[Rfam]
Nucleotides: 071
Base pairs, nucleotide, nucleotide: 010025011024012023013022016062017061018060019059020058021057035052036051037050
Number, partner (000 for none) and nucleotide at each position: 001000u002000a003000c004000g005000c006000g007000c008000a009000a010025g011024g012023a013022a014000a015000u016062g017061g018060u019059g020058u021057c022013u023012u024011c025010c026000u027000a028000c029000u030000u031000a032000a033000c034000c035052g036051u037050c038000c039000g040000c041000c042000u043000c044000u045000g046000g047000c048000g049000a050037g051036a052035c053000u054000g055000a056000u057021g058020g059019c060018g061017c062016c063000u064000a065000c066000a067000a068000a069000u070000a071000c
The family of this 71-nucleotide sequence from Niastella yeongjuensis is "Fluoride riboswitch aptamer (crcB RNA motif)".
Lineage of the source: Bacteria > Pseudomonadati > Chitinophagia > Chitinophagales > Niastella.
Rfam 15.1 lists 2,293 matches to the family in 1,982 species.
Its family is annotated with positive regulation of gene expression and response to fluoride in the Gene Ontology.
The base pairs follow the family's consensus structure, which is taken from published work.